[Rfam]
RNA: TPP riboswitch aptamer (THI element)
RNA sequence: CCCCUCGAUUACGAGUGUCAUUUUUUUGACUGAGAAGAAAAUCGUUAGAACUUGAUCACGUUCAUGCGUGCGAAAGGAAAUCGAGGGGAAAAAGC
Numbered sequence: 001c002c003c004c005u006c007g008a009u010u011a012c013g014a015g016u017g018u019c020a021u022u023u024u025u026u027u028g029a030c031u032g033a034g035a036a037g038a039a040a041a042u043c044g045u046u047a048g049a050a051c052u053u054g055a056u057c058a059c060g061u062u063c064a065u066g067c068g069u070g071c072g073a074a075a076g077g078a079a080a081u082c083g084a085g086g087g088g089a090a091a092a093a094g095c
Stems, first nucleotide, its partner, number of pairs: 006083005011045004016039001017030004051076003057070004